[Rfam]
RNA sequence: UGAAAGAAUUUUAUGGUUAAGAAGCAACAGUCUCUUGUACAGAUUGUGUAUUAGUCU
Numbered sequence: 001u002g003a004a005a006g007a008a009u010u011u012u013a014u015g016g017u018u019a020a021g022a023a024g025c026a027a028c029a030g031u032c033u034c035u036u037g038u039a040c041a042g043a044u045u046g047u048g049u050a051u052u053a054g055u056c057u
Stems, first nucleotide, its partner, number of pairs: 018037005024031002
RNA: Plastid-rps18 3UTR RNA